[Rfam]
RNA: L2-Alphaproteobacteria ribosomal protein leader
RNA sequence: GGGGAUCUUCGGAGCCCUACAACCGCGCGAGGACGAUCCUUCGGGGGCGUCAUGCGCUAGCUAACGGAAGACAGAAA
Numbered sequence: 001g002g003g004g005a006u007c008u009u010c011g012g013a014g015c016c017c018u019a020c021a022a023c024c025g026c027g028c029g030a031g032g033a034c035g036a037u038c039c040u041u042c043g044g045g046g047g048c049g050u051c052a053u054g055c056g057c058u059a060g061c062u063a064a065c066g067g068a069a070g071a072c073a074g075a076a077a
Base pairs, nucleotide, nucleotide: 001018002017003016004015006014008012027055028054029053031051032050